[Rfam]
RNA: Small nucleolar RNA SNORD27
Organism: Pongo abelii
RNA sequence: ACUCCAUGAUGAACCCAAAAUGUCAAGUAUAUGACUGAACUUACAAGUGAUAACAUCUUACGACUGAAGAGU
Numbered sequence: 001a002c003u004c005c006a007u008g009a010u011g012a013a014c015c016c017a018a019a020a021u022g023u024c025a026a027g028u029a030u031a032u033g034a035c036u037g038a039a040c041u042u043a044c045a046a047g048u049g050a051u052a053a054c055a056u057c058u059u060a061c062g063a064c065u066g067a068a069g070a071g072u
Stems, first nucleotide, its partner, number of pairs: 001072004